[Rfam]
RNA: Glycine riboswitch aptamer
Organism: Sphingomonas xanthus
Nucleotides: 090
Base pairs, nucleotide, nucleotide: 001090002089003088004087011030012029013028014027032078033077034076035074036073039072040071041070045065046064
Number, partner (000 for none) and nucleotide at each position: 001090u002089c003088u004087g005000g006000a007000a008000a009000g010000c011030g012029u013028u014027c015000c016000u017000g018000u019000a020000c021000a022000a023000g024000c025000a026000g027014g028013g029012a030011c031000c032078a033077c034076c035074g036073a037000a038000g039072g040071g041070g042000u043000a044000a045065c046064u047000c048000u049000g050000g051000c052000c053000u054000c055000g056000c057000g058000g059000c060000u061000g062000g063000a064046g065045g066000a067000a068000a069000g070041c071040u072039c073036u074035c075000a076034g077033g078032u079000c080000g081000c082000c083000g084000c085000g086000a087004c088003a089002g090001a